[Rfam]
RNA sequence: AUAUCCGUUUCGGCACUACUCCACUCAUAAUAGGCCGCGGCGGGGAACGAAGGAGGAUGCGUCCGCUGUUGCUGGCGGUGCGGCAGCGUGGAGACCUGCCGUAAGGCCGCGCGGGUAAUGCCGGCGGCGAGCUUCUUUUUGCCGGAGGGCGAAGGAGCGCAGCAAAAAACAUAUGGCA
Number, nucleotide and partner (000 for none) at each position: 001a000002u000003a000004u000005c000006c042007g041008u040009u039010u000011c037012g036013g035014c034015a000016c033017u032018a031019c000020u000021c000022c000023a000024c000025u000026c000027a000028u000029a000030a000031u018032a017033g016034g014035c013036c012037g011038c000039g009040g008041c007042g006043g000044g000045g000046a000047a000048c000049g000050a000051a000052g000053g000054a000055g000056g000057a000058u000059g000060c000061g000062u000063c078064c077065g076066c075067u000068g000069u165070u164071g163072c162073u161074g160075g066076c065077g064078g063079u103080g102081c101082g100083g099084c098085a097086g096087c000088g095089u094090g000091g000092a000093g000094a089095c088096c086097u085098g084099c083100c082101g081102u080103a079104a000105g000106g128107c127108c126109g125110c124111g000112c123113g122114g121115g000116u000117a000118a000119u000120g000121c114122c113123g112124g110125c109126g108127g107128c106129g000130a000131g158132c157133u156134u155135c154136u153137u152138u151139u000140u000141g150142c149143c148144g000145g000146a000147g000148g143149g142150c141151g138152a137153a136154g135155g134156a133157g132158c131159g000160c074161a073162g072163c071164a070165a069166a000167a000168a000169a000170c000171a000172u000173a000174u000175g000176g000177c000178a000
Shown here is a 178-nucleotide sequence, a member of the family "malK-I RNA". It is one of the family's seed sequences.